This 84-nucleotide RNA from Austrofundulus limnaeus belongs to the Rfam family "mir-128 microRNA precursor family". The family's consensus secondary structure was predicted with RNAalifold. Rfam links the family to the GO terms miRNA-mediated post-transcriptional gene silencing and RISC complex.
RNA sequence: CAGCAGCAGAGGAGGGGGCCGUUACACUGUCAGAGAUGUAGUCUGAGGGUCUCACAGUGAACCGGUCUCUUUCCCUGCUGCUUC
Numbered sequence: 001c002a003g004c005a006g007c008a009g010a011g012g013a014g015g016g017g018g019c020c021g022u023u024a025c026a027c028u029g030u031c032a033g034a035g036a037u038g039u040a041g042u043c044u045g046a047g048g049g050u051c052u053c054a055c056a057g058u059g060a061a062c063c064g065g066u067c068u069c070u071u072u073c074c075c076u077g078c079u080g081c082u083u084c
Stems, first nucleotide, its partner, number of pairs: 006078004015069007025059006033053003

A search with the family's covariance model found it, with a score of 81 bits.
The literature on the family includes a 2006 paper in FEBS Lett by Xu et al., "Identification of microRNAs from different tissues of chicken embryo and adult chicken".